[Rfam]
This 84-nucleotide RNA sequence from Gossypium raimondii belongs to the Rfam family "Small nucleolar RNA SNORD34". snoRNA U34 is found in intron 5 of the ribosomal protein L13a gene in humans. The family has 14 seed sequences and 1,319 matches in Rfam 15.1. By type it is a C/D-box small nucleolar RNA. The source organism's lineage runs through Eukaryota, Streptophyta, Spermatophyta, malvids and Gossypium. A reference for the family is Chen et al. (2003), "The high diversity of snoRNAs in plants: identification and comparative study of 120 snoRNA genes from Oryza sativa", Nucleic Acids Res.
RNA sequence: UUAGAGGCUUAUGAUGAUUAAGAAUUGCCUACAUUGUCAGACCUUCAGUCUGAUGACAACAAAAACUACAAAUCUGAGGCCCAA
Numbered sequence: 001u002u003a004g005a006g007g008c009u010u011a012u013g014a015u016g017a018u019u020a021a022g023a024a025u026u027g028c029c030u031a032c033a034u035u036g037u038c039a040g041a042c043c044u045u046c047a048g049u050c051u052g053a054u055g056a057c058a059a060c061a062a063a064a065a066c067u068a069c070a071a072a073u074c075u076g077a078g079g080c081c082c083a084a
Base pairs, nucleotide, nucleotide: 001084002083006081007080008079009078